[Rfam]
RNA sequence: CCAACGUGGACAUCCAGAGAAGUUGCUCUCUCUUGGCUCUGUCUGUGUGGCGUAUGGGAGCGUAGGCCUUUGGGCUCAAUGACGUAUAGUCCCCUUCCACAACGUUGGAGAGCAAGCCGGGCCUCUGGUCUGCAGCCUGCAUAUUCCUACUGCUUCUCUGAGUCUUCGGACUGUGACUGAGGAGAUAAACCAUGCAGGAGACAUUA
Number, nucleotide and partner (000 for none) at each position: 001c108002c107003a106004a105005c104006g103007u102008g044009g043010a042011c041012a040013u000014c036015c035016a034017g000018a029019g028020a027021a000022g000023u000024u000025g000026c000027u020028c019029u018030c000031u000032c000033u000034u016035g015036g014037c000038u000039c000040u012041g011042u010043c009044u008045g000046u000047g100048u099049g098050g097051c000052g000053u000054a000055u000056g093057g092058g091059a090060g087061c000062g085063u084064a000065g080066g000067c000068c000069u000070u000071u000072g000073g000074g000075c000076u000077c000078a000079a000080u065081g000082a000083c000084g063085u062086a000087u060088a000089g000090u059091c058092c057093c056094c000095u000096u000097c050098c049099a048100c047101a000102a007103c006104g005105u004106u003107g002108g001109a000110g000111a000112g000113c000114a000115a000116g000117c000118c000119g000120g000121g000122c000123c000124u000125c000126u000127g000128g000129u000130c000131u000132g000133c000134a000135g000136c198137c197138u196139g195140c194141a193142u192143a000144u000145u000146c000147c000148u000149a000150c000151u000152g000153c184154u183155u182156c181157u180158c179159u000160g000161a000162g171163u170164c169165u000166u000167c000168g000169g164170a163171c162172u000173g000174u000175g000176a000177c000178u000179g158180a157181g156182g155183a154184g153185a000186u000187a000188a000189a000190c000191c000192a142193u141194g140195c139196a138197g137198g136199a000200g000201a000202c000203a000204u000205u000206a000
A member of the RNA family "Small nucleolar RNA SNORA73 family" from Pelusios castaneus, 206 nucleotides long. Its Rfam clan is "snR30-U17 clan". The match comes from Rfam's covariance-model search (189 bits). A reference for the family is Enright et al. (1996), "5'ETS rRNA processing facilitated by four small RNAs: U14, E3, U17, and U3", RNA. The family's consensus secondary structure is taken from published work. The family has 66 seed sequences and 2,326 matches in Rfam 15.1. Rfam's curators write: U17 (SNORA73A and SNORA73B) also known as E1 belongs to the H/ACA class of small nucleolar RNAs (snoRNAs). Vertebrate U17 is intron-encoded and ranges in length from 200-230 nucleotides, longer than most snoRNAs. It is one of the most abundant snoRNAs in human cells and is essential for the cleavage of pre-rRNA within the 5' external transcribed spacer (ETS). Rfam classes the family as an H/ACA-box small nucleolar RNA. Lineage of the source: Eukaryota > Teleostomi > Euteleostomi > Amniota > Pelusios.